[Rfam]
The record is a 52-nucleotide RNA sequence from Hansschlegelia zhihuaiae, which matches "ffh sRNA" in Rfam.
On this family, see Meyer et al., BMC Genomics 2009: "Identification of candidate structured RNAs in the marine organism 'Candidatus Pelagibacter ubique'".
The family's consensus secondary structure is taken from published work.
It scores 52 bits against the family's covariance model.
It is annotated as a small RNA.

RNA sequence: AGGUCGGGGGGUCAACGUCCGCCAGCGCGUUGCGCUCGCGGGCGCGAUCGGC
Numbered sequence: 001a002g003g004u005c006g007g008g009g010g011g012u013c014a015a016c017g018u019c020c021g022c023c024a025g026c027g028c029g030u031u032g033c034g035c036u037c038g039c040g041g042g043c044g045c046g047a048u049c050g051g052c
Stems, first nucleotide, its partner, number of pairs: 016044007025035004